This 76-nucleotide RNA sequence from Ruminococcus sp. CAG:177 belongs to the Rfam family "Gut-1 RNA". The base pairs follow the family's consensus structure, which is taken from published work. Taxonomically the source falls in Ruminococcus (Bacteria, Bacillati, Clostridia, Eubacteriales).

RNA sequence: CAGUGAAAUUCGUUCCUACGGAACGAGUGAAAUAUCUUCGAUGUGAAAUAUUUGCCUCGCAAAUGUGAGAUAUGCC
Numbered sequence: 001c002a003g004u005g006a007a008a009u010u011c012g013u014u015c016c017u018a019c020g021g022a023a024c025g026a027g028u029g030a031a032a033u034a035u036c037u038u039c040g041a042u043g044u045g046a047a048a049u050a051u052u053u054g055c056c057u058c059g060c061a062a063a064u065g066u067g068a069g070a071u072a073u074g075c076c
Base pairs, nucleotide, nucleotide: 008028009027010026011025012024013023014022015021032044033043034042035041048066049065050064051063052062053061